[Rfam]
RNA sequence: GAAAUAGAUCAUCAUUACUUUCGUAUAACCCCAAUAAUCGGUUUGGGGGUAUCUACGAGGAACCGUAAAUUCCUUGGCUACGAAAAGAUUUUCUUAUGCA
Dot-bracket structure: ..................(((((((...((((((........)))))).......(((((((.......)))))))..)))))))...............
Rfam assigns this 100-nucleotide RNA sequence from Neobacillus mesonae to the family "Purine riboswitch aptamer". Taxonomically the source falls in Neobacillus (Bacteria, Bacillati, Bacillota, Bacilli). A search with the family's covariance model found it, with a score of 68 bits. Pairs were carried over by alignment from the consensus structure, which is taken from published work.